[Rfam]
RNA sequence: UUGUGUGUGGAUGGUGUUCAGCACCAGGGACAGGUGUAUUUGUGUGUGGAUGGUGUUCAACACCCUUAACAGAUGGGUUUGUGG
Numbered sequence: 001u002u003g004u005g006u007g008u009g010g011a012u013g014g015u016g017u018u019c020a021g022c023a024c025c026a027g028g029g030a031c032a033g034g035u036g037u038a039u040u041u042g043u044g045u046g047u048g049g050a051u052g053g054u055g056u057u058c059a060a061c062a063c064c065c066u067u068a069a070c071a072g073a074u075g076g077g078u079u080u081g082u083g084g
Stems, first nucleotide, its partner, number of pairs: 001072004013064006020057007028045001030043005
The record is an 84-nucleotide RNA sequence from Branchiostoma floridae, which matches "mir-2060 microRNA precursor family" in Rfam. The organism belongs to Branchiostoma, within Eukaryota. A search with the family's covariance model found it, with a score of 59 bits.